A member of the RNA family "Vertebrate telomerase RNA" from Rhinolophus ferrumequinum, 408 nucleotides long.
[Rfam]
RNA sequence: UUGCAGAGGGUCAAGUGAUGGCCAUAUCUUUCUUACCCUAAUUGAGACGAGUGUAGAUGCCAUGAUUUGCUCCCUGCCUAUUGUUUUUGUCACUCGAUUUCAGAAGGAGGAAAAGCCUUGGUCCACUAUCCAGUCUAGAGCAAACAAAAAAUGUCAAUGGCUGGGUAACUCACCCCUACCAGGAACCUGUGGUACUUGCCACCCAGCCCUAUGCCCUACUUGAAGGCCAUGUUCUGCCUGAGGUUUCUCUGGAGAUGCCCAGUGCCACCAGGAAGAGUUGGGCUCUAUUAACUGCAGUUCUCUGGGGUGCCAAGGAUGAGGCUCUGUCUACAGGGAGAGAAAUGGAGAAGUGCAUGGUGCACUUCCCUGAGCUGUGGGACUUGCAUCUAGAACUAGACUCUGACAUAU
Numbered sequence: 001u002u003g004c005a006g007a008g009g010g011u012c013a014a015g016u017g018a019u020g021g022c023c024a025u026a027u028c029u030u031u032c033u034u035a036c037c038c039u040a041a042u043u044g045a046g047a048c049g050a051g052u053g054u055a056g057a058u059g060c061c062a063u064g065a066u067u068u069g070c071u072c073c074c075u076g077c078c079u080a081u082u083g084u085u086u087u088u089g090u091c092a093c094u095c096g097a098u099u100u101c102a103g104a105a106g107g108a109g110g111a112a113a114a115g116c117c118u119u120g121g122u123c124c125a126c127u128a129u130c131c132a133g134u135c136u137a138g139a140g141c142a143a144a145c146a147a148a149a150a151a152u153g154u155c156a157a158u159g160g161c162u163g164g165g166u167a168a169c170u171c172a173c174c175c176c177u178a179c180c181a182g183g184a185a186c187c188u189g190u191g192g193u194a195c196u197u198g199c200c201a202c203c204c205a206g207c208c209c210u211a212u213g214c215c216c217u218a219c220u221u222g223a224a225g226g227c228c229a230u231g232u233u234c235u236g237c238c239u240g241a242g243g244u245u246u247c248u249c250u251g252g253a254g255a256u257g258c259c260c261a262g263u264g265c266c267a268c269c270a271g272g273a274a275g276a277g278u279u280g281g282g283c284u285c286u287a288u289u290a291a292c293u294g295c296a297g298u299u300c301u302c303u304g305g306g307g308u309g310c311c312a313a314g315g316a317u318g319a320g321g322c323u324c325u326g327u328c329u330a331c332a333g334g335g336a337g338a339g340a341a342a343u344g345g346a347g348a349a350g351u352g353c354a355u356g357g358u359g360c361a362c363u364u365c366c367c368u369g370a371g372c373u374g375u376g377g378g379a380c381u382u383g384c385a386u387c388u389a390g391a392a393c394u395a396g397a398c399u400c401u402g403a404c405a406u407a408u
Stems, first nucleotide, its partner, number of pairs: 007177004014170003018166001020162005064116001066114003075109001077107003081103003094156001096154001098151003186334007198322003201317001203315002206308006216297002219294001228272001230270002236265002240260001242258001274286004345400003349394002357386005364379004
For this family Rfam cites "Secondary structure of vertebrate telomerase RNA" (Chen et al., Cell, 2000). It is annotated as a non-coding RNA gene. Taxonomically the source falls in Rhinolophus (Eukaryota, Vertebrata, Sarcopterygii, Boreoeutheria). Clan: Telomerase clan. Its family is annotated with telomere maintenance via telomerase, telomerase catalytic core complex and telomerase activity in the Gene Ontology. Pairs were carried over by alignment from the consensus structure, which is taken from published work. Rfam describes the family as follows. Telomerase is a ribonucleoprotein reverse transcriptase that synthesises telomeric DNA. Telomerase RNAs differ greatly in sequence and structure between vertebrates, ciliates and yeasts, but they share a 5' pseudoknot structure close to the template sequence. Vertebrate telomerase RNAs have a 3' H/ACA snoRNA-like domain.